A member of the RNA family "Antizyme RNA frameshifting stimulation element" from Kryptolebias marmoratus, 54 nucleotides long.
RNA sequence: UGGUGCUCCUCUCCCACCCCUGAAGAUCCCAGGUGGGGAGGGCCUGCAGGGAAU
Numbered sequence: 001u002g003g004u005g006c007u008c009c010u011c012u013c014c015c016a017c018c019c020c021u022g023a024a025g026a027u028c029c030c031a032g033g034u035g036g037g038g039a040g041g042g043c044c045u046g047c048a049g050g051g052a053a054u
Base pairs, nucleotide, nucleotide: 007042008041009040010039011038013037014036015035016034017033018032025054027052028051029050030049
Dot-bracket structure: ......(((((.((((((......[.[[[[.)))))))))))......]]]].]
This family represents a structural element which is found in antizyme mRNA and is known to promote frameshifting. Antizyme genes have have two partially overlapping open reading frames, the second, which encodes the functional protein requires +1 translational frameshifting.